[Rfam]
RNA: SAH (S-adenosyl-L-homocysteine) riboswitch aptamer
Organism: Spiribacter curvatus
RNA sequence: GGCAUCGAGGAGCGCUGCACCACGCCAGAUGACAGGGUGGGAGGCUCGAUGCCGGGGUUUCAACGAACAACGGCGCUCAACCGCA
Dot-bracket structure: .(((((((............(((.(.........).)))......))))))).................................